Background:
The family of this 272-nucleotide RNA sequence from Nannospalax galili is "Mason-Pfizer monkey virus packaging signal". NCBI's taxonomy places the organism under Eukaryota, Opisthokonta, Bilateria, Mammalia, Nannospalax. The match comes from Rfam's covariance-model search (162 bits). It is annotated as a cis-regulatory element. Gene Ontology term of the family: viral genome packaging. The family's consensus secondary structure was predicted with PFOLD.

RNA sequence: UGGUGCCCAACAUGGGGCUUGGAUACUGAGGCAGCAGUGAAGGAGACAACGUGAAAAAGAGCAUUCCACAAAUUUUGAGACACAUCGAGCCGCCGUGGGAACCUGCCUCGGCCGAAACCGAAAGUAAGUGGAAACGUCCGAUCAUGGGGCAAGAAUUAAGCCAGCAUGAGCUUUAUAUUAAGCAGUUAAAGGAGGCUUUAAAGACACGGGGAGUAAAGGUUAAAACUGCGGAUUUGUUUCAUUUUUUGAUUUCGUUAAAGAAAUUUGUCUCU
Numbered sequence: 001u002g003g004u005g006c007c008c009a010a011c012a013u014g015g016g017g018c019u020u021g022g023a024u025a026c027u028g029a030g031g032c033a034g035c036a037g038u039g040a041a042g043g044a045g046a047c048a049a050c051g052u053g054a055a056a057a058a059g060a061g062c063a064u065u066c067c068a069c070a071a072a073u074u075u076u077g078a079g080a081c082a083c084a085u086c087g088a089g090c091c092g093c094c095g096u097g098g099g100a101a102c103c104u105g106c107c108u109c110g111g112c113c114g115a116a117a118c119c120g121a122a123a124g125u126a127a128g129u130g131g132a133a134a135c136g137u138c139c140g141a142u143c144a145u146g147g148g149g150c151a152a153g154a155a156u157u158a159a160g161c162c163a164g165c166a167u168g169a170g171c172u173u174u175a176u177a178u179u180a181a182g183c184a185g186u187u188a189a190a191g192g193a194g195g196c197u198u199u200a201a202a203g204a205c206a207c208g209g210g211g212a213g214u215a216a217a218g219g220u221u222a223a224a225a226c227u228g229c230g231g232a233u234u235u236g237u238u239u240c241a242u243u244u245u246u247u248g249a250u251u252u253c254g255u256u257a258a259a260g261a262a263a264u265u266u267g268u269c270u271c272u
Base pairs, nucleotide, nucleotide: 006031007030013025014024037047038046082125083124085121086120091114092113094110095109097107098106135149137148138147139146140145157200158199159198160196161195162194207248208247209246210245211244212243213242214241217235218234219233220232221231257272259270260269261268